[Rfam]
RNA sequence: UGCCAUGAUGGUGUAAUUUGCGUCUUACCAGGUAUUGGGUGACAGUAGCCUGCUGUCAUUGUGCCCGUACCACGGACUGACGACACUUGAGUCUGAGCA
Numbered sequence: 001u002g003c004c005a006u007g008a009u010g011g012u013g014u015a016a017u018u019u020g021c022g023u024c025u026u027a028c029c030a031g032g033u034a035u036u037g038g039g040u041g042a043c044a045g046u047a048g049c050c051u052g053c054u055g056u057c058a059u060u061g062u063g064c065c066c067g068u069a070c071c072a073c074g075g076a077c078u079g080a081c082g083a084c085a086c087u088u089g090a091g092u093c094u095g096a097g098c099a
Base pairs, nucleotide, nucleotide: 001099002098003097021082022081023080024079031071032070033069034068039064040063041057042056043055044054045053
Shown here is a 99-nucleotide RNA from Eleutherodactylus coqui, a member of the family "Small nucleolar RNA SNORD16". The base pairs follow the family's consensus structure, which was predicted with PFOLD. By type it is a C/D-box small nucleolar RNA. Clan: SNORD16 clan.